RNA sequence: AAACAGCCCCCUAUGUAUUGGAUCUUUGGCAGUUUUGGCCCCAAUGCCACUUUUAACUUACUCUUCGCUGACAUGGUACCCACAAUGGUCGACACGUGACACCUCACUUAAGGGAUAUGGGUACCACGUCAGCGAAGACUAAGUCAAAAGUGGCCUUGGGGGCCAAAACUGCCAAAGAUUCGAUACAUAAGGGGUUGUUU
Numbered sequence: 001a002a003a004c005a006g007c008c009c010c011c012u013a014u015g016u017a018u019u020g021g022a023u024c025u026u027u028g029g030c031a032g033u034u035u036u037g038g039c040c041c042c043a044a045u046g047c048c049a050c051u052u053u054u055a056a057c058u059u060a061c062u063c064u065u066c067g068c069u070g071a072c073a074u075g076g077u078a079c080c081c082a083c084a085a086u087g088g089u090c091g092a093c094a095c096g097u098g099a100c101a102c103c104u105c106a107c108u109u110a111a112g113g114g115a116u117a118u119g120g121g122u123a124c125c126a127c128g129u130c131a132g133c134g135a136a137g138a139c140u141a142a143g144u145c146a147a148a149a150g151u152g153g154c155c156u157u158g159g160g161g162g163c164c165a166a167a168a169c170u171g172c173c174a175a176a177g178a179u180u181c182g183a184u185a186c187a188u189a190a191g192g193g194g195u196u197g198u199u200u
Stems, first nucleotide, its partner, number of pairs: 001200002004197005012189029041159004071129002074126008
Description:
The family of this 200-nucleotide RNA from Medicago truncatula is "MIR2619 microRNA precursor family". The family's consensus secondary structure was predicted with RNAalifold. NCBI's taxonomy places the organism under Eukaryota, Euphyllophyta, Fabaceae, Papilionoideae, Medicago. Rfam links the family to the GO terms miRNA-mediated post-transcriptional gene silencing and RISC complex.